[Rfam]
RNA sequence: GGUCUGUGAUGAAUAGUAAAAGGUCUGAUUAUCCCAAGACCUGCAGUUCCAUGCCCUCUUCUCCCAGCAGUUUCUCCCCAGCCACAGCACAGCAAUGGUGUGGCUGGCAGAGUGUUUGCUGACAGUGUGAGAUGUGCUCAGGUCGUGUUCAUCUGGAGCCACUGAGACAUGACUGGGAUCAGCAUCCAACAGCCCUGCUUGAAGGAGUUUGGGGUCUUGGAUUGGUCUAACUGGACAUGUGAUCUGACUUUCCUGCUGAGACC
Numbered sequence: 001g002g003u004c005u006g007u008g009a010u011g012a013a014u015a016g017u018a019a020a021a022g023g024u025c026u027g028a029u030u031a032u033c034c035c036a037a038g039a040c041c042u043g044c045a046g047u048u049c050c051a052u053g054c055c056c057u058c059u060u061c062u063c064c065c066a067g068c069a070g071u072u073u074c075u076c077c078c079c080a081g082c083c084a085c086a087g088c089a090c091a092g093c094a095a096u097g098g099u100g101u102g103g104c105u106g107g108c109a110g111a112g113u114g115u116u117u118g119c120u121g122a123c124a125g126u127g128u129g130a131g132a133u134g135u136g137c138u139c140a141g142g143u144c145g146u147g148u149u150c151a152u153c154u155g156g157a158g159c160c161a162c163u164g165a166g167a168c169a170u171g172a173c174u175g176g177g178a179u180c181a182g183c184a185u186c187c188a189a190c191a192g193c194c195c196u197g198c199u200u201g202a203a204g205g206a207g208u209u210u211g212g213g214g215u216c217u218u219g220g221a222u223u224g225g226u227c228u229a230a231c232u233g234g235a236c237a238u239g240u241g242a243u244c245u246g247a248c249u250u251u252c253c254u255g256c257u258g259a260g261a262c263c
Stems, first nucleotide, its partner, number of pairs: 001263004037245003041241001048221004053216001061207004065121006078107009129187001131186005144171005149165003

A member of the RNA family "Small Cajal body specific RNA 6" from Polioptila caerulea, 263 nucleotides long.
The family's RNA type in Rfam is small Cajal body RNA.
Taxonomically the source falls in Polioptila (Eukaryota, Eumetazoa, Sauropsida, Archelosauria).
Rfam's curators write: U88 is small Cajal body specific RNA (scaRNA). scaRNAs are a novel class of small nuclear RNAs which localise to the Cajal bodies. U88 is found associated with both fibrillarin and Gar1p and co-localises with coilin in Cajal bodies.